[Rfam]
RNA sequence: GUGUGCAUUUGCAGGAACUUGUGAGUCUCCUAUUGAAAAUGGACAGGAGACUGACAAGUUCCCGGGAACACCCACAA
Numbered sequence: 001g002u003g004u005g006c007a008u009u010u011g012c013a014g015g016a017a018c019u020u021g022u023g024a025g026u027c028u029c030c031u032a033u034u035g036a037a038a039a040u041g042g043a044c045a046g047g048a049g050a051c052u053g054a055c056a057a058g059u060u061c062c063c064g065g066g067a068a069c070a071c072c073c074a075c076a077a
Stems, first nucleotide, its partner, number of pairs: 001075003005071001008068003012064001014062009024052008033043002
mir-873 microRNA precursor family: a 77-nucleotide RNA sequence from Rattus norvegicus. A reference for the family is Ahn et al. (2010), "MicroRNA transcriptome in the newborn mouse ovaries determined by massive parallel sequencing", Mol Hum Reprod. The family's consensus secondary structure was predicted with RNAalifold. The source organism's lineage runs through Eukaryota, Chordata, Sarcopterygii, Theria and Rattus. Its family is annotated with RISC complex and miRNA-mediated post-transcriptional gene silencing in the Gene Ontology.